[Rfam]
The record is a 46-nucleotide RNA from Odocoileus virginianus, which matches "Histone 3' UTR stem-loop" in Rfam. From the family's description: The mRNAs of metazoan histone genes lack a poly-A tail. 3' end processing occurs at a site between a highly conserved stem-loop (modelled by this family) and a purine rich region around 20 nts downstream (the histone downstream element, or HDE). The stem-loop is bound by a 31 kDa stem-loop binding protein (SLBP - also termed the histone hairpin binding protein, or HBP). Together with U7 snRNA binding of the HDE, SLBP binding nucleate s the formation of the processing complex. The histone 3' UTR stem-loop is also involved in nucleocytoplasmic transport of the mRNA, and in stability regulation and translation efficiency in the cytoplasm.
RNA sequence: CCAAAGGCUCUUUUAAGAGCCACCCACUUUUUCAGCAGAAGGGUUG
Numbered sequence: 001c002c003a004a005a006g007g008c009u010c011u012u013u014u015a016a017g018a019g020c021c022a023c024c025c026a027c028u029u030u031u032u033c034a035g036c037a038g039a040a041g042g043g044u045u046g
Base pairs, nucleotide, nucleotide: 006021007020008019009018010017011016